[Rfam]
RNA sequence: CUGUUAGGGGAAUGAUGUAUUAUUACAGAGCGCUUAAGAUGCUUGCCUUUUUGGAUUCAGCUUCUGAGGUGGAUAUCAG
Dot-bracket structure: (((.((...................................................................)).)))
Numbered sequence: 001c002u003g004u005u006a007g008g009g010g011a012a013u014g015a016u017g018u019a020u021u022a023u024u025a026c027a028g029a030g031c032g033c034u035u036a037a038g039a040u041g042c043u044u045g046c047c048u049u050u051u052u053g054g055a056u057u058c059a060g061c062u063u064c065u066g067a068g069g070u071g072g073a074u075a076u077c078a079g
Stems, first nucleotide, its partner, number of pairs: 001079003005075002
The family of this 79-nucleotide RNA sequence from Cuscuta europaea is "Small nucleolar RNA J33".
Rfam links the family to the GO terms RNA processing and nucleolus.
On this family, see Chen et al., Nucleic Acids Res 2003: "The high diversity of snoRNAs in plants: identification and comparative study of 120 snoRNA genes from Oryza sativa".
The base pairs follow the family's consensus structure.
It scores 78 bits against the family's covariance model.
The family's RNA type in Rfam is C/D-box small nucleolar RNA.
Lineage of the source: Eukaryota > Streptophyta > Solanales > Cuscuta > Cuscuta subgen. Cuscuta.